[Rfam]
RNA sequence: ACGCAAACGUAGACAAGGAUUAGCAGUCACACUUGGGAAUAGAGAGCUGGCAGAUGGUGCAAGUCAGUGGAACAAUAUGGUGAACUCGCCUUAGAGUUUUAAAAGUGAAAAACGAGAGUAGCUUUUGACGGGUCACGUCCGUUACACGUGAUAAGUGAAUGAAUGAUAAGUUCAUUAAUAUGGGUGGUACCGCGGGAAGUAUACAGACUCUCGUCCCUAAC
Numbered sequence: 001a002c003g004c005a006a007a008c009g010u011a012g013a014c015a016a017g018g019a020u021u022a023g024c025a026g027u028c029a030c031a032c033u034u035g036g037g038a039a040u041a042g043a044g045a046g047c048u049g050g051c052a053g054a055u056g057g058u059g060c061a062a063g064u065c066a067g068u069g070g071a072a073c074a075a076u077a078u079g080g081u082g083a084a085c086u087c088g089c090c091u092u093a094g095a096g097u098u099u100u101a102a103a104a105g106u107g108a109a110a111a112a113c114g115a116g117a118g119u120a121g122c123u124u125u126u127g128a129c130g131g132g133u134c135a136c137g138u139c140c141g142u143u144a145c146a147c148g149u150g151a152u153a154a155g156u157g158a159a160u161g162a163a164u165g166a167u168a169a170g171u172u173c174a175u176u177a178a179u180a181u182g183g184g185u186g187g188u189a190c191c192g193c194g195g196g197a198a199g200u201a202u203a204c205a206g207a208c209u210c211u212c213g214u215c216c217c218u219a220a221c
Base pairs, nucleotide, nucleotide: 007097008096015092016091017090018089026081027080028079029078031076046068047067048066049065050064051063100127101126102125103124104123105122106121129141130140131139158176159175160174161173162172163171164170182217183216184215192214193213194212195211196210
Shown here is a 221-nucleotide RNA from Halalkalibacter oceani, a member of the family "T-box leader". For this family Rfam cites "Interaction between the acceptor end of tRNA and the T box stimulates antitermination in the Bacillus subtilis tyrS gene: a new role for the discriminator base" (Grundy et al., J Bacteriol, 1994). It is annotated as a cis-regulatory leader. The family has 48 seed sequences and 19,395 matches in Rfam 15.1. Pairs were carried over by alignment from the consensus structure, which is taken from published work.